[Rfam]
RNA: Group II catalytic intron D1-D4-4
Organism: Candidatus Finniella inopinata
RNA sequence: CAGUGGGUGCGAAUUCCACCCGGUAAACUGUUGCUCCGGCCGGAAGUACUUUGGAGUAGCUCACGAGGUAACGAAUGGGUUAAAGCAUCUGAAGAAAAGGUCAUGUAGAUGAUCAACGAUUGUGCGGGCCGUAGCGCGC
Number, nucleotide and partner (000 for none) at each position: 001c000002a000003g000004u000005g000006g000007g000008u000009g000010c000011g000012a000013a000014u000015u000016c000017c000018a000019c000020c043021c042022g041023g040024u039025a000026a000027a000028c000029u000030g000031u000032u000033g000034c000035u000036c000037c000038g000039g024040c023041c022042g021043g020044a000045a000046g000047u000048a000049c000050u000051u092052u091053g090054g089055a088056g000057u082058a081059g080060c079061u078062c077063a000064c000065g000066a000067g072068g000069u000070a000071a000072c067073g000074a000075a000076u000077g062078g061079g060080u059081u058082a057083a000084a000085g000086c000087a000088u055089c054090u053091g052092a051093a000094g000095a000096a000097a000098a000099g114100g113101u112102c111103a110104u109105g000106u000107a000108g000109a104110u103111g102112a101113u100114c099115a000116a132117c131118g130119a000120u000121u000122g000123u000124g000125c000126g000127g000128g000129c000130c118131g117132u116133a000134g000135c000136g000137c000138g000139c000